A member of the RNA family "UnaL2 LINE 3' element" from Salmo trutta, 54 nucleotides long. For this family Rfam cites "Solution structure of an RNA stem-loop derived from the 3' conserved region of eel LINE UnaL2" (Baba et al., RNA, 2004). NCBI's taxonomy places the organism under Eukaryota, Teleostei, Osteoglossocephalai, Euteleosteomorpha, Salmo. It scores 60 bits against the family's covariance model. Rfam describes the family as follows. The eel long interspersed element (LINE) UnaL2 and its partner short interspersed element (SINE) share a conserved 3' tail containing a stem-loop that is critical for their retrotransposition. Presumably, the first step of retrotransposition is the recognition of their 3' tails by UnaL2-encoded reverse transcriptase. The solution structure of a 17-nucleotide RNA derived from the 3' tail of UnaL2 was determined by NMR.

RNA sequence: UGCAUUCACUACUGUAAGUCGCUCUGGAUAAGAGCGUCUGCUAAAAUGUUAAUG
Numbered sequence: 001u002g003c004a005u006u007c008a009c010u011a012c013u014g015u016a017a018g019u020c021g022c023u024c025u026g027g028a029u030a031a032g033a034g035c036g037u038c039u040g041c042u043a044a045a046a047u048g049u050u051a052a053u054g
Stems, first nucleotide, its partner, number of pairs: 013043001014041003020036006
Dot-bracket structure: ............((((...((((((.....))))))..))).)...........